RNA sequence: UAACGUGCUCCGGGGUCGGUGAGAGUCCGAACCGGCGGUGACAGUCCGCGAGUCGCGCCCAGCAAUGGGCGUGAUUGAGCCGGUGAAAUUCCGGUACCGACGGUUAUGGGUUGGGAUGUGCAAGCAUCCCGGCUCGAGUCCGGAUGGGAGGCAGCACGCGU
Numbered sequence: 001u002a003a004c005g006u007g008c009u010c011c012g013g014g015g016u017c018g019g020u021g022a023g024a025g026u027c028c029g030a031a032c033c034g035g036c037g038g039u040g041a042c043a044g045u046c047c048g049c050g051a052g053u054c055g056c057g058c059c060c061a062g063c064a065a066u067g068g069g070c071g072u073g074a075u076u077g078a079g080c081c082g083g084u085g086a087a088a089u090u091c092c093g094g095u096a097c098c099g100a101c102g103g104u105u106a107u108g109g110g111u112u113g114g115g116a117u118g119u120g121c122a123a124g125c126a127u128c129c130c131g132g133c134u135c136g137a138g139u140c141c142g143g144a145u146g147g148g149a150g151g152c153a154g155c156a157c158g159c160g161u
Base pairs, nucleotide, nucleotide: 004158005157006156007155008154009153010150017029018028019027033099034098035049036048037047038046044097045096052075053074054073079095080094081093082092083091101142102141103140

Rfam assigns this 161-nucleotide RNA from Mycetocola manganoxydans to the family "FMN riboswitch aptamer (RFN element)".
The organism belongs to Mycetocola, within Bacteria.
It scores 76 bits against the family's covariance model.